Shown here is a 61-nucleotide sequence from Sphingomonas chungangi, a member of the family "terC RNA". By type it is a cis-regulatory element. Lineage of the source: Bacteria > Pseudomonadota > Sphingomonadales > Sphingomonadaceae > Sphingomonas. A search with the family's covariance model found it, with a score of 60 bits.

RNA sequence: UCUGCGGACCGGGCCCCUCUGGCGGCGGCUUACCCAAGCCCCGUGAUGUCGGACCGCAUCG
Dot-bracket structure: .....((.((((.........((((.((((......))))))))....)))).))......